Annotation: Small nucleolar RNA Z102/R77: an 82-nucleotide sequence from Rhododendron simsii. The family's RNA type in Rfam is C/D-box small nucleolar RNA. NCBI's taxonomy places the organism under Eukaryota, Viridiplantae, Streptophyta, Embryophyta, Rhododendron. The family has 9 seed sequences and 1,346 matches in Rfam 15.1. The family is grouped with related families in Rfam's "SNORD44 clan". For this family Rfam cites "The high diversity of snoRNAs in plants: identification and comparative study of 120 snoRNA genes from Oryza sativa" (Chen et al., Nucleic Acids Res, 2003).
[Rfam]
RNA sequence: GAAUGAUAUGAUGAUGAGAUUUUUUCCCUAUUGGUUUGAUCACCAGAAUGAUGGUAUCUUUAUUAGCUCUAUCUGAUUAUUC
Numbered sequence: 001g002a003a004u005g006a007u008a009u010g011a012u013g014a015u016g017a018g019a020u021u022u023u024u025u026c027c028c029u030a031u032u033g034g035u036u037u038g039a040u041c042a043c044c045a046g047a048a049u050g051a052u053g054g055u056a057u058c059u060u061u062a063u064u065a066g067c068u069c070u071a072u073c074u075g076a077u078u079a080u081u082c
Stems, first nucleotide, its partner, number of pairs: 002081004038058001042055003